ZMP/ZTP riboswitch aptamer (pfl RNA motif): an 85-nucleotide RNA sequence from Nocardia huaxiensis. The base pairs follow the family's consensus structure, which is taken from published work. The match comes from Rfam's covariance-model search (42 bits). Lineage of the source: Bacteria > Bacillati > Actinomycetota > Actinomycetes > Nocardia.
RNA sequence: GUUAGACGCAGCGACUGGCGCACUCGAGGUGGAAGUAACCACCGGGAAGCACCGAAGUCCCGCACCGCGCGCCUGGGUGCAGGGC
Numbered sequence: 001g002u003u004a005g006a007c008g009c010a011g012c013g014a015c016u017g018g019c020g021c022a023c024u025c026g027a028g029g030u031g032g033a034a035g036u037a038a039c040c041a042c043c044g045g046g047a048a049g050c051a052c053c054g055a056a057g058u059c060c061c062g063c064a065c066c067g068c069g070c071g072c073c074u075g076g077g078u079g080c081a082g083g084g085c
Base pairs, nucleotide, nucleotide: 007054008053011050012049015046016045017073018072019071020070021069029042030041031040032039062080063079064078065077066076